RNA sequence: UCCUCUGAUGAUGUCAAAACUUUCGUUCUCCUGAGAUUUCAAUGUGCUGAAAAAAUUGGAGACCUGAACUGAAGAGUU
Numbered sequence: 001u002c003c004u005c006u007g008a009u010g011a012u013g014u015c016a017a018a019a020c021u022u023u024c025g026u027u028c029u030c031c032u033g034a035g036a037u038u039u040c041a042a043u044g045u046g047c048u049g050a051a052a053a054a055a056u057u058g059g060a061g062a063c064c065u066g067a068a069c070u071g072a073a074g075a076g077u078u
Stems, first nucleotide, its partner, number of pairs: 003076004
A member of the RNA family "Small nucleolar RNA Z159/U59" from Brassica carinata, 78 nucleotides long. The match comes from Rfam's covariance-model search (61 bits). The source organism's lineage runs through Eukaryota, eudicotyledons, rosids, malvids and Brassica. The literature on the family includes a 2003 paper in Nucleic Acids Res by Chen et al., "The high diversity of snoRNAs in plants: identification and comparative study of 120 snoRNA genes from Oryza sativa". The family has 10 seed sequences and 1,401 matches in Rfam 15.1. By type it is a C/D-box small nucleolar RNA.